Notes
Shown here is an 86-nucleotide RNA sequence from Anaerocolumna jejuensis, a member of the family "c-di-GMP-I riboswitch aptamer". Taxonomically the source falls in Anaerocolumna jejuensis (Bacteria, Bacillota, Clostridia, Lachnospiraceae). Pairs were carried over by alignment from the consensus structure, which is taken from published work.

[Rfam]
RNA sequence: UAUUUAUAUAGGCAAACUCAUUGAAAGAUGAGGACGCAAAGCUUAGGGUCUAAAUCUGUACGCAGAUAUGACAGCCAGUUGCACGA
Numbered sequence: 001u002a003u004u005u006a007u008a009u010a011g012g013c014a015a016a017c018u019c020a021u022u023g024a025a026a027g028a029u030g031a032g033g034a035c036g037c038a039a040a041g042c043u044u045a046g047g048g049u050c051u052a053a054a055u056c057u058g059u060a061c062g063c064a065g066a067u068a069u070g071a072c073a074g075c076c077a078g079u080u081g082c083a084c085g086a
Base pairs, nucleotide, nucleotide: 012037013036017032018031019030020029021028022027040080041079042078043077046076047075048072049071050070055066056065057064058063